[Rfam]
Nucleotides: 322
Base pairs, nucleotide, nucleotide: 005157006156007155008154009153010152011151014146015145016144017143019049021047022046023045024044025043050105051104052103053102054101058098059097060096065092066091067090068089069088070085071084072083073082074081075080108140109139114134115133116132117131118130
Number, partner (000 for none) and nucleotide at each position: 001000g002000a003000c004000a005157g006156u007155g008154u009153c010152g011151c012000g013000a014146u015145a016144g017143u018000a019049a020000u021047u022046c023045a024044a025043c026000c027000u028000a029000g030000u031000a032000u033000g034000a035000g036000a037000g038000g039000a040000a041000c042000c043025g044024u045023u046022g047021a048000u049019u050105c051104a052103c053102a054101c055000a056000a057000u058098u059097g060096g061000u062000c063000a064000u065092c066091g067090c068089g069088c070085u071084u072083g073082g074081u075080u076000g077000a078000a079000a080075a081074g082073c083072c084071a085070g086000u087000g088069g089068c090067g091066c092065g093000a094000a095000g096060c097059u098058a099000c100000c101054g102053u103052g104051u105050g106000c107000c108140g109139g110000a111000u112000u113000a114134u115133g116132a117131c118130u119000g120000a121000a122000c123000g124000c125000c126000u127000c128000u129000a130118a131117g132116u133115c134114a135000g136000a137000a138000u139109c140108c141000a142000a143017g144016c145015u146014a147000g148000c149000a150000u151011g152010c153009g154008a155007c156006g157005c158000c159000u160000g161000c162000g163000c164000c165000c166000g167000c168000c169000g170000c171000c172000c173000g174000c175000c176000c177000c178000g179000a180000c181000c182000c183000a184000c185000g186000u187000u188000a189000g190000g191000c192000c193000u194000c195000a196000g197000g198000c199000g200000g201000a202000a203000u204000a205000g206000g207000u208000a209000c210000u211000g212000a213000a214000a215000a216000a217000c218000a219000g220000g221000a222000a223000g224000g225000c226000a227000u228000g229000a230000c231000a232000u233000a234000u235000u236000u237000a238000c239000a240000u241000g242000c243000a244000u245000g246000a247000u248000c249000a250000g251000c252000a253000u254000g255000c256000u257000a258000a259000g260000c261000a262000c263000a264000u265000g266000g267000c268000a269000u270000u271000g272000c273000a274000a275000c276000a277000g278000a279000g280000u281000a282000g283000a284000u285000a286000c287000a288000c289000u290000c291000c292000a293000a294000g295000a296000c297000a298000u299000u300000a301000u302000a303000u304000g305000c306000a307000u308000g309000u310000u311000g312000u313000a314000c315000c316000c317000a318000u319000a320000u321000c322000a
Source information:
A member of the RNA family "Eukaryotic large subunit ribosomal RNA" from Aegilops tauschii, 322 nucleotides of a longer RNA. Taxonomically the source falls in Aegilops tauschii (Eukaryota, Streptophyta, commelinids, Triticeae). A search with the family's covariance model found it, with a score of 3048 bits.